The family of this 117-nucleotide RNA sequence from Barrientosiimonas humi is "SAM (S-adenosyl methionine) riboswitch aptamer". The family's consensus secondary structure is taken from published work. The match comes from Rfam's covariance-model search (90 bits). Its Rfam clan is "SAM clan".
[Rfam]
RNA sequence: GGUCAAGAGCGCCAGCGCCAAGUCCCGGCUCGCUGGCCGGCAACCCUCCACCGCGGUGGGGUGCCCCGGGAACAGACCUGGCCGGUGCUCGACGGGAGGGCCCGGCAAGCGCGGGCG
Numbered sequence: 001g002g003u004c005a006a007g008a009g010c011g012c013c014a015g016c017g018c019c020a021a022g023u024c025c026c027g028g029c030u031c032g033c034u035g036g037c038c039g040g041c042a043a044c045c046c047u048c049c050a051c052c053g054c055g056g057u058g059g060g061g062u063g064c065c066c067c068g069g070g071a072a073c074a075g076a077c078c079u080g081g082c083c084g085g086u087g088c089u090c091g092a093c094g095g096g097a098g099g100g101c102c103c104g105g106c107a108a109g110c111g112c113g114g115g116c117g
Base pairs, nucleotide, nucleotide: 001078002077003076004075009038011037012036013035014034015033016032021030022029039065040064041063044061045060046059048056049055081106082105083104084103085102088099089098